[Rfam]
RNA sequence: GACAUUCGGACAGCGCCCUCCUCCUCCCGGCGCGAUCCGAUGGACUGGCGUCCUCCUCCUCCCUAUCGCCAGUCGCAUCAAACGACGCCCACCGGACCUCCUCCCUCCGGUGGGCGUUGUCG
Number, nucleotide and partner (000 for none) at each position: 001g000002a000003c000004a000005u000006u000007c039008g038009g037010a036011c000012a000013g033014c032015g031016c030017c000018c000019u000020c000021c000022u000023c000024c000025u000026c000027c000028c000029g000030g016031c015032g014033c013034g000035a000036u010037c009038c008039g007040a000041u000042g000043g074044a073045c072046u071047g070048g069049c068050g067051u000052c000053c000054u000055c000056c000057u000058c000059c000060u000061c000062c000063c000064u000065a000066u000067c050068g049069c048070c047071a046072g045073u044074c043075g000076c000077a000078u000079c000080a000081a000082a000083c000084g000085a117086c116087g115088c114089c113090c112091a111092c110093c109094g108095g107096a000097c000098c000099u000100c000101c000102u000103c000104c000105c000106u000107c095108c094109g093110g092111u091112g090113g089114g088115c087116g086117u085118u000119g000120u000121c000122g000
RNA: Alphaproteobacterial ar14